[Rfam]
The record is a 169-nucleotide RNA from Scopulibacillus darangshiensis, which matches "glmS glucosamine-6-phosphate activated ribozyme aptamer" in Rfam. This entry contains a glucosamine-6-phosphate activated ribozyme that is found in the mRNA for GlmS. GlmS is an enzyme that uses fructose-6-phosphate and glutamine to generate glucosamine-6-phosphate. By type it is a riboswitch.
RNA sequence: GGCAAGACCAAAGCGCCUGAACUAUUCUUGACCGGAGAAGAGAAUAGUUGACGAGGAAGAGGUUGAUCGAAUUUUCGGCGGAUACCUCUCGGGCAGACUCAUAGCUCGUUAGUCUUUGCUUGAAAACAGAGGGGCGACCCUAUGUACAAGAGCCAUAGACACCUUGAGA
Numbered sequence: 001g002g003c004a005a006g007a008c009c010a011a012a013g014c015g016c017c018u019g020a021a022c023u024a025u026u027c028u029u030g031a032c033c034g035g036a037g038a039a040g041a042g043a044a045u046a047g048u049u050g051a052c053g054a055g056g057a058a059g060a061g062g063u064u065g066a067u068c069g070a071a072u073u074u075u076c077g078g079c080g081g082a083u084a085c086c087u088c089u090c091g092g093g094c095a096g097a098c099u100c101a102u103a104g105c106u107c108g109u110u111a112g113u114c115u116u117u118g119c120u121u122g123a124a125a126a127c128a129g130a131g132g133g134g135c136g137a138c139c140c141u142a143u144g145u146a147c148a149a150g151a152g153c154c155a156u157a158g159a160c161a162c163c164u165u166g167a168g169a
Stems, first nucleotide, its partner, number of pairs: 020049008029040001058089005067078004090108005113159003117155002127144002130141004